[Rfam]
RNA sequence: CCAUACUCCUGAUGGUAGUGGCAUCCUUUUUUGCAAAAAAAGAUAUAACGGACAGCAGGUAGAAAC
Numbered sequence: 001c002c003a004u005a006c007u008c009c010u011g012a013u014g015g016u017a018g019u020g021g022c023a024u025c026c027u028u029u030u031u032u033g034c035a036a037a038a039a040a041a042g043a044u045a046u047a048a049c050g051g052a053c054a055g056c057a058g059g060u061a062g063a064a065a066c
Stems, first nucleotide, its partner, number of pairs: 009058003013054002018049002023044003028039004
A member of the RNA family "Flavo-1 RNA", 66 nucleotides long. It is annotated as a small RNA.